[Rfam]
RNA sequence: GUUGAAGUUCCAUCUACAAAUGGAUAAGACAUUUUGUCUUAGUGUAUAGGAAUUGUUGAAGGAAUAAUACCAAACCUCUAAUAAGGAGGUUUGGUAUUACUCCUUUUUU
Numbered sequence: 001g002u003u004g005a006a007g008u009u010c011c012a013u014c015u016a017c018a019a020a021u022g023g024a025u026a027a028g029a030c031a032u033u034u035u036g037u038c039u040u041a042g043u044g045u046a047u048a049g050g051a052a053u054u055g056u057u058g059a060a061g062g063a064a065u066a067a068u069a070c071c072a073a074a075c076c077u078c079u080a081a082u083a084a085g086g087a088g089g090u091u092u093g094g095u096a097u098u099a100c101u102c103c104u105u106u107u108u109u
Base pairs, nucleotide, nucleotide: 009024010023011022012021013020063106065099066098067097068096069095070094072092073091074090076088077087078086079085
Description
Plastid-psbA-1 3UTR RNA: a 109-nucleotide RNA. The family's consensus secondary structure was predicted with LocARNA. Its Rfam clan is "Plastid-psbA 3UTR RNA clan". The literature on the family includes a 2023 paper in Plant Commun by Richter et al., "Retrograde signaling in plants: A critical review focusing on the GUN pathway and beyond". The family's RNA type in Rfam is cis-regulatory element.